This 78-nucleotide RNA sequence from Dipodomys ordii belongs to the Rfam family "mir-3473 microRNA precursor family". A search with the family's covariance model found it, with a score of 77 bits.

[Rfam]
RNA sequence: ACCACUGAGCCACCUUCCCAGCCCCUUAUUCCUUCUUUUAAAAGAAAAAGUUCCGGGCUGGGAAGGUGGCUCAGUGGU
Numbered sequence: 001a002c003c004a005c006u007g008a009g010c011c012a013c014c015u016u017c018c019c020a021g022c023c024c025c026u027u028a029u030u031c032c033u034u035c036u037u038u039u040a041a042a043a044g045a046a047a048a049a050g051u052u053c054c055g056g057g058c059u060g061g062g063a064a065g066g067u068g069g070c071u072c073a074g075u076g077g078u
Stems, first nucleotide, its partner, number of pairs: 002077023